The family of this 145-nucleotide RNA sequence from Azoarcus taiwanensis is "radC RNA". The base pairs follow the family's consensus structure, which is taken from published work. Taxonomically the source falls in Azoarcus (Bacteria, Pseudomonadota, Rhodocyclales, Zoogloeaceae).
RNA sequence: AAUCUGCCCCCAUGUCCGUCGGCGAUGCCGACAACAUGCCCAGGUAGCCAAGACCUUCAAGGCUAAGGCGCGUUACGACGCGCAGGUCGUUCUCUUCACCAAGCCGUUCCCGGCGCUUUCUUCCACCCCUUGGGGCAGCGACUGC
Numbered sequence: 001a002a003u004c005u006g007c008c009c010c011c012a013u014g015u016c017c018g019u020c021g022g023c024g025a026u027g028c029c030g031a032c033a034a035c036a037u038g039c040c041c042a043g044g045u046a047g048c049c050a051a052g053a054c055c056u057u058c059a060a061g062g063c064u065a066a067g068g069c070g071c072g073u074u075a076c077g078a079c080g081c082g083c084a085g086g087u088c089g090u091u092c093u094c095u096u097c098a099c100c101a102a103g104c105c106g107u108u109c110c111c112g113g114c115g116c117u118u119u120c121u122u123c124c125a126c127c128c129c130u131u132g133g134g135g136c137a138g139c140g141a142c143u144g145c
Base pairs, nucleotide, nucleotide: 011038012037013036014035015033018032019031020030021029022028023027045065046064047063048062049061052088053087054086055085068083069082070081071080072079073078115145116144123138126135127134128133